[Rfam]
RNA sequence: GUGCACAGUGAACACCCAGGGGUGCUAACGUGGCUCCCUCUGUCUCUUGUAUCUGUGCUACAGUAAAUCUGAUCCGUACCUCUGCAUCAGGAGAGUCUCAUCCUCCCCUAGAUGUAUUCAGCGGAUCAGAAUAACC
Dot-bracket structure: ..((((((.(..((..((((.(.(((.....))).)..)))).....))..)))))))...(.((....)).)........((((((((((.(((.......))).))).))))....)))...............
Shown here is a 136-nucleotide sequence from Larimichthys crocea, a member of the family "Small nucleolar RNA SNORA22". Rfam describes the family as follows. ACA22 is a member of the H/ACA class of snoRNA that guide the sites of modification of uridines to pseudouridines. Its family is annotated with nucleolus and RNA processing in the Gene Ontology. A search with the family's covariance model found it, with a score of 88 bits. NCBI's taxonomy places the organism under Eukaryota, Gnathostomata, Osteoglossocephalai, Acanthomorphata, Larimichthys.